[Rfam]
The record is a 77-nucleotide RNA sequence from Orchesella cincta, which matches "mir-10 microRNA precursor family" in Rfam. A search with the family's covariance model found it, with a score of 54 bits. Its family is annotated with miRNA-mediated post-transcriptional gene silencing and RISC complex in the Gene Ontology. Rfam 15.1 lists 3,853 matches to the family in 853 species.

RNA sequence: CUACAUCUACCCUGUAGAUCCGAAUUUGUCUGAAUCUCAGACUACUUAACAAAUUCGGUUCUAGAGAGGUUUGUGUG
Numbered sequence: 001c002u003a004c005a006u007c008u009a010c011c012c013u014g015u016a017g018a019u020c021c022g023a024a025u026u027u028g029u030c031u032g033a034a035u036c037u038c039a040g041a042c043u044a045c046u047u048a049a050c051a052a053a054u055u056c057g058g059u060u061c062u063a064g065a066g067a068g069g070u071u072u073g074u075g076u077g
Base pairs, nucleotide, nucleotide: 002075003074004073005072011066016062017061018060020058021057022056023055024054025053026052027051028050029049